[Rfam]
RNA sequence: UACUUAUCCAGAGAGGUGGAGGGAACGGCCCUAAGAAACCUCAGCAACCCCUAUGCAAUUUUAUAGGAAGGUGCUAAUUCCGCAGAGGACACGAUGUGUUUUUUGAAAGAUAAGAG
Numbered sequence: 001u002a003c004u005u006a007u008c009c010a011g012a013g014a015g016g017u018g019g020a021g022g023g024a025a026c027g028g029c030c031c032u033a034a035g036a037a038a039c040c041u042c043a044g045c046a047a048c049c050c051c052u053a054u055g056c057a058a059u060u061u062u063a064u065a066g067g068a069a070g071g072u073g074c075u076a077a078u079u080c081c082g083c084a085g086a087g088g089a090c091a092c093g094a095u096g097u098g099u100u101u102u103u104u105g106a107a108a109g110a111u112a113a114g115a116g
Stems, first nucleotide, its partner, number of pairs: 001116001003114006013042005021031003027081002043075004048071002050067004079108001083105009
RNA: SAM riboswitch aptamer (S box leader)